[Rfam]
RNA sequence: UGACCCCCACAACGGCUUCCUGGCGUGGCGCGGUCUUGAACCCAAUGGAGCG
Numbered sequence: 001u002g003a004c005c006c007c008c009a010c011a012a013c014g015g016c017u018u019c020c021u022g023g024c025g026u027g028g029c030g031c032g033g034u035c036u037u038g039a040a041c042c043c044a045a046u047g048g049a050g051c052g
Base pairs, nucleotide, nucleotide: 004033005032007028008027009026010025013022014021015051016050017049019048020047

The record is a 52-nucleotide RNA sequence from Paracoccus salipaludis, which matches "SAM/SAH riboswitch aptamer" in Rfam. Its family is annotated with S-adenosylmethionine metabolic process and regulation of gene expression in the Gene Ontology. NCBI's taxonomy places the organism under Bacteria, Pseudomonadati, Pseudomonadota, Alphaproteobacteria, Paracoccus. For this family Rfam cites "The structure of the SAM/SAH-binding riboswitch" (Weickhmann et al., Nucleic Acids Res, 2019).